RNA sequence: UCCGGUCCUCGGUAGUGGCUCCCGCCGCCCAUCACGGGUAGGCGAGAGCUUCGAUCGAAGACCGGG
Numbered sequence: 001u002c003c004g005g006u007c008c009u010c011g012g013u014a015g016u017g018g019c020u021c022c023c024g025c026c027g028c029c030c031a032u033c034a035c036g037g038g039u040a041g042g043c044g045a046g047a048g049c050u051u052c053g054a055u056c057g058a059a060g061a062c063c064g065g066g
Base pairs, nucleotide, nucleotide: 001066002065003064004063005062006061007060009058010057011056012055013054017050018049019048020047021046023044024043025042026041027039028038029037
Rfam assigns this 66-nucleotide RNA from Frankineae bacterium MT45 to the family "Actino-pnp RNA".